[Rfam]
RNA: F6 TB sRNA
RNA sequence: CAGACGACUCCGGACUACCGCCAGACCCCCGACCUGGCGGCCGUCCGGAGUCAUCUG
Numbered sequence: 001c002a003g004a005c006g007a008c009u010c011c012g013g014a015c016u017a018c019c020g021c022c023a024g025a026c027c028c029c030c031g032a033c034c035u036g037g038c039g040g041c042c043g044u045c046c047g048g049a050g051u052c053a054u055c056u057g
Stems, first nucleotide, its partner, number of pairs: 002056003007051009018040005